RNA sequence: CCCCAGGGCUUUCGUCAGGGUGCUCUCGUGCUUUUUGCUCAAUGGGAGAUUGUCCGUUACAACCCUGGAAGAUUAAUAUCCAUCUCCAACGUCCCUGGUCUGGUCUUCAGAUUAGGGACUGAUGGCCCCCGUUUUGGGGUGUUGUCGCCGGAUACCGGAUGUGUUUCAGCUGAGUUGAAGACAGCCACGGUCCUGUUGGACAGCACAUGGUUGUCUUCUUAGUAAUGAUUCACACAUUU
Numbered sequence: 001c002c003c004c005a006g007g008g009c010u011u012u013c014g015u016c017a018g019g020g021u022g023c024u025c026u027c028g029u030g031c032u033u034u035u036u037g038c039u040c041a042a043u044g045g046g047a048g049a050u051u052g053u054c055c056g057u058u059a060c061a062a063c064c065c066u067g068g069a070a071g072a073u074u075a076a077u078a079u080c081c082a083u084c085u086c087c088a089a090c091g092u093c094c095c096u097g098g099u100c101u102g103g104u105c106u107u108c109a110g111a112u113u114a115g116g117g118a119c120u121g122a123u124g125g126c127c128c129c130c131g132u133u134u135u136g137g138g139g140u141g142u143u144g145u146c147g148c149c150g151g152a153u154a155c156c157g158g159a160u161g162u163g164u165u166u167c168a169g170c171u172g173a174g175u176u177g178a179a180g181a182c183a184g185c186c187a188c189g190g191u192c193c194u195g196u197u198g199g200a201c202a203g204c205a206c207a208u209g210g211u212u213g214u215c216u217u218c219u220u221a222g223u224a225a226u227g228a229u230u231c232a233c234a235c236a237u238u239u
Stems, first nucleotide, its partner, number of pairs: 003068005018055005024049004030038002079159002084157001091119012121149001123147002127139005161233003166228003177218004183212004190201004
About this RNA: The record is a 239-nucleotide RNA from Thermochaetoides thermophila, which matches "Small nucleolar RNA snR191" in Rfam. It scores 69 bits against the family's covariance model. A reference for the family is Badis et al. (2003), "A snoRNA that guides the two most conserved pseudouridine modifications within rRNA confers a growth advantage in yeast", RNA. NCBI's taxonomy places the organism under Eukaryota, Dikarya, saccharomyceta, Thermochaetoides, Thermochaetoides thermophila. It is annotated as an H/ACA-box small nucleolar RNA. Its family is annotated with RNA processing and nucleolus in the Gene Ontology.